[Rfam]
RNA sequence: AACGUUCAUCUCUCUAAAAAUCGCGAAUCGAUUUGAUUCCCUAUUAGGGAGACGGAAGUAGGGAGUAUUUACAUAGUCAUCCCGAAGGAACGCGCC
Numbered sequence: 001a002a003c004g005u006u007c008a009u010c011u012c013u014c015u016a017a018a019a020a021u022c023g024c025g026a027a028u029c030g031a032u033u034u035g036a037u038u039c040c041c042u043a044u045u046a047g048g049g050a051g052a053c054g055g056a057a058g059u060a061g062g063g064a065g066u067a068u069u070u071a072c073a074u075a076g077u078c079a080u081c082c083c084g085a086a087g088g089a090a091c092g093c094g095c096c
Stems, first nucleotide, its partner, number of pairs: 003092005009052009055093001061083003
RNA: Glutamine riboswitch aptamer (glnA leader)
Organism: Planktothricoides sp. SR001